RNA sequence: GUGCCAGAAAUGAUGAUUAUCUUCAUGUCUCUUCUCUGACUGUUUGGUGAAGAGAGAUUUGUGAUAUCUGAUCUUCAUGCAC
Numbered sequence: 001g002u003g004c005c006a007g008a009a010a011u012g013a014u015g016a017u018u019a020u021c022u023u024c025a026u027g028u029c030u031c032u033u034c035u036c037u038g039a040c041u042g043u044u045u046g047g048u049g050a051a052g053a054g055a056g057a058u059u060u061g062u063g064a065u066a067u068c069u070g071a072u073c074u075u076c077a078u079g080c081a082c
Stems, first nucleotide, its partner, number of pairs: 001082004

Small nucleolar RNA SNORD111: an 82-nucleotide RNA sequence. The family's consensus secondary structure was predicted with RNAalifold. Rfam classes the family as a C/D-box small nucleolar RNA. The family has 5 seed sequences and 894 matches in Rfam 15.1.